The family of this 299-nucleotide sequence from Patiria miniata is "Metazoan signal recognition particle RNA". Rfam links the family to the GO terms signal recognition particle, endoplasmic reticulum targeting and SRP-dependent cotranslational protein targeting to membrane, signal sequence recognition. It is annotated as a non-coding RNA gene. The base pairs follow the family's consensus structure, which is taken from published work. About the family: The signal recognition particle (SRP) is a universally conserved ribonucleoprotein. It is involved in the co-translational targeting of proteins to membranes. The eukaryotic SRP consists of a 300-nucleotide 7S RNA and six proteins: SRPs 72, 68, 54, 19, 14, and 9. Archaeal SRP consists of a 7S RNA and homologues of the eukaryotic SRP19 and SRP54 proteins.
[Rfam]
RNA sequence: GCUGGGCGUUGUGGCGUGCGCCUGUAAUCCAGCUACUUUGGAAGCCGGGGUUGGUGGAUCGCUUGAGUUCGGGAGUCCUGUAUGUCGUUGCCCUAUGGCGAUCGGGCGUCCGCGCUAAGCUCGGCAUCGAUAUGGUUAUCCCGGCGGAGGUUGAGAUAUCCAGGUCGUCUAAGGAGGGACGAACCGGCCCAGGGCGGAAACGCAGCAGGCAAAAGUCCCCAUGUGGAGCAGUAGUGGGAUUGCGCCCGUGAAUAGGUAGCGGCAUGCAGCCCGAACGAUACAGUGGGACCCAUCCCUUU
Numbered sequence: 001g002c003u004g005g006g007c008g009u010u011g012u013g014g015c016g017u018g019c020g021c022c023u024g025u026a027a028u029c030c031a032g033c034u035a036c037u038u039u040g041g042a043a044g045c046c047g048g049g050g051u052u053g054g055u056g057g058a059u060c061g062c063u064u065g066a067g068u069u070c071g072g073g074a075g076u077c078c079u080g081u082a083u084g085u086c087g088u089u090g091c092c093c094u095a096u097g098g099c100g101a102u103c104g105g106g107c108g109u110c111c112g113c114g115c116u117a118a119g120c121u122c123g124g125c126a127u128c129g130a131u132a133u134g135g136u137u138a139u140c141c142c143g144g145c146g147g148a149g150g151u152u153g154a155g156a157u158a159u160c161c162a163g164g165u166c167g168u169c170u171a172a173g174g175a176g177g178g179a180c181g182a183a184c185c186g187g188c189c190c191a192g193g194g195c196g197g198a199a200a201c202g203c204a205g206c207a208g209g210c211a212a213a214a215g216u217c218c219c220c221a222u223g224u225g226g227a228g229c230a231g232u233a234g235u236g237g238g239a240u241u242g243c244g245c246c247c248g249u250g251a252a253u254a255g256g257u258a259g260c261g262g263c264a265u266g267c268a269g270c271c272c273g274a275a276c277g278a279u280a281c282a283g284u285g286g287g288a289c290c291c292a293u294c295c296c297u298u299u
Stems, first nucleotide, its partner, number of pairs: 001045003004023006028042003047297004052292003059286005067276007078269013092256005103248007110238002113236005119229004124224004128167004133162003137158004142153004168174002176219005187210003194203003